The record is a 90-nucleotide RNA sequence from Branchiostoma belcheri, which matches "mir-2060 microRNA precursor family" in Rfam. The family's consensus secondary structure was predicted with RNAalifold. The family has 7 seed sequences and 3,696 matches in Rfam 15.1. Rfam links the family to the GO terms RISC complex and miRNA-mediated post-transcriptional gene silencing.

RNA sequence: GUGUAUUUGUGUGUGGAUGGUGUUCAGCACCAAGGACAGGUUUGCCUGUGUGUGGAUGGUGUUCAGCACCAGGGAGAGGUAUGUUUGUGU
Number, nucleotide and partner (000 for none) at each position: 001g000002u000003g000004u081005a080006u079007u078008u077009g000010u075011g000012u000013g000014u000015g000016g000017a000018u071019g070020g069021u068022g067023u066024u065025c000026a063027g062028c061029a060030c059031c058032a057033a000034g051035g000036a049037c048038a047039g046040g045041u000042u000043u000044g000045c040046c039047u038048g037049u036050g000051u034052g000053u000054g000055g000056a000057u032058g031059g030060u029061g028062u027063u026064c000065a024066g023067c022068a021069c020070c019071a018072g000073g000074g000075a010076g000077a008078g007079g006080u005081a004082u000083g000084u000085u000086u000087g000088u000089g000090u000